[Rfam]
RNA sequence: GGAUAACAUUUUUUGCUAUUUUCGGCUAAUAAUGCAAUGACAUGUAAAAUAACUUUUUCACAUGUUAUUGUGUUAUUAGCUGAGGAUAGCAAAAUAGUGCUAUCC
Numbered sequence: 001g002g003a004u005a006a007c008a009u010u011u012u013u014u015g016c017u018a019u020u021u022u023c024g025g026c027u028a029a030u031a032a033u034g035c036a037a038u039g040a041c042a043u044g045u046a047a048a049a050u051a052a053c054u055u056u057u058u059c060a061c062a063u064g065u066u067a068u069u070g071u072g073u074u075a076u077u078a079g080c081u082g083a084g085g086a087u088a089g090c091a092a093a094a095u096a097g098u099g100c101u102a103u104c105c
Base pairs, nucleotide, nucleotide: 002104003103004102005101011094012093013092014091015090016089017088018087019086021084022083023082024081025080026079027078028077029076030075031074032073033072034071035070036069037068038067039066040065041064042063043062044061045060047058048057049056
RNA: MIR6274 microRNA precursor family
Organism: Prunus persica